[Rfam]
RNA: mraW RNA
RNA sequence: CCUGCUCCGCCCGACGAGACCUCCUCCCGUCCGCUCUGACGCACUUCCCCGGCGCCAGAGAGGUCGGUGGGGGAUCUGGCCGGACGGAGGAGGGUCC
Numbered sequence: 001c002c003u004g005c006u007c008c009g010c011c012c013g014a015c016g017a018g019a020c021c022u023c024c025u026c027c028c029g030u031c032c033g034c035u036c037u038g039a040c041g042c043a044c045u046u047c048c049c050c051g052g053c054g055c056c057a058g059a060g061a062g063g064u065c066g067g068u069g070g071g072g073g074a075u076c077u078g079g080c081c082g083g084a085c086g087g088a089g090g091a092g093g094g095u096c097c
Stems, first nucleotide, its partner, number of pairs: 007087003011083003018076002021073005027067003031063002034060005040054003